A member of the RNA family "Rhodo-rpoB RNA" from Palleronia abyssalis, 89 nucleotides long.
The organism belongs to Palleronia, within Bacteria.
It is annotated as a cis-regulatory element.
The base pairs follow the family's consensus structure, which is taken from published work.
[Rfam]
RNA sequence: GGAUCGGGCGGCUGUCUGUGGGAGGACAGCCAGGUAUGGAUCCGGCCCCCCGUUUCGCCCGGAGGGCGGCCUUCCCCAAGGGCCCGCAU
Numbered sequence: 001g002g003a004u005c006g007g008g009c010g011g012c013u014g015u016c017u018g019u020g021g022g023a024g025g026a027c028a029g030c031c032a033g034g035u036a037u038g039g040a041u042c043c044g045g046c047c048c049c050c051c052g053u054u055u056c057g058c059c060c061g062g063a064g065g066g067c068g069g070c071c072u073u074c075c076c077c078a079a080g081g082g083c084c085c086g087c088a089u
Stems, first nucleotide, its partner, number of pairs: 001043005010031008064089001066087002068084004
Dot-bracket structure: (((((....((((((((......)))))))).......)))))....................(.((((((.........)))).)).)